[Rfam]
RNA sequence: AAAUUAAUCAAGAAUAAUUUUCGUAUAACUCCAAUAAUAUGGUUUGGAGGUCUCUACCAGGAACCGAAAUUCCUGCUUACGAAGAAGAUGCAUGUGGUG
Numbered sequence: 001a002a003a004u005u006a007a008u009c010a011a012g013a014a015u016a017a018u019u020u021u022c023g024u025a026u027a028a029c030u031c032c033a034a035u036a037a038u039a040u041g042g043u044u045u046g047g048a049g050g051u052c053u054c055u056a057c058c059a060g061g062a063a064c065c066g067a068a069a070u071u072c073c074u075g076c077u078u079a080c081g082a083a084g085a086a087g088a089u090g091c092a093u094g095u096g097g098u099g
Stems, first nucleotide, its partner, number of pairs: 018085008029049006058075006